[Rfam]
RNA sequence: AGUUAAUUAGCUUAACAAAAGCAAAUGUUUUGAAAACAUAAGAAAAGAAGUUCAAUUCUUCUAUUAACUU
Numbered sequence: 001a002g003u004u005a006a007u008u009a010g011c012u013u014a015a016c017a018a019a020a021g022c023a024a025a026u027g028u029u030u031u032g033a034a035a036a037c038a039u040a041a042g043a044a045a046a047g048a049a050g051u052u053c054a055a056u057u058c059u060u061c062u063a064u065u066a067a068c069u070u
Stems, first nucleotide, its partner, number of pairs: 001069007010022004025039004046062005
RNA: tRNA